[Rfam]
The family of this 97-nucleotide sequence from Candidatus Thiodiazotropha endolucinida is "Bacterial small signal recognition particle RNA". It is annotated as a non-coding RNA gene. The base pairs follow the family's consensus structure, which is taken from published work. The source organism's lineage runs through Bacteria, Pseudomonadati, Pseudomonadota, Sedimenticolaceae and Candidatus Thiodiazotropha. The signal recognition particle (SRP) is a universally conserved ribonucleoprotein involved in the co-translational targeting of proteins to membranes.
RNA sequence: UAUCGGUCCCCCCGCAACGAGAAGCUGUGAACCCCGUCAGGCCCGGAAGGGAGCAGCGGCAGCAGUGGCAUCGUGUGCCGGGGUGUGGCUGGUACUU
Numbered sequence: 001u002a003u004c005g006g007u008c009c010c011c012c013c014g015c016a017a018c019g020a021g022a023a024g025c026u027g028u029g030a031a032c033c034c035c036g037u038c039a040g041g042c043c044c045g046g047a048a049g050g051g052a053g054c055a056g057c058g059g060c061a062g063c064a065g066u067g068g069c070a071u072c073g074u075g076u077g078c079c080g081g082g083g084u085g086u087g088g089c090u091g092g093u094a095c096u097u
Stems, first nucleotide, its partner, number of pairs: 004091005010083005015075001017074004024066005034059004042051003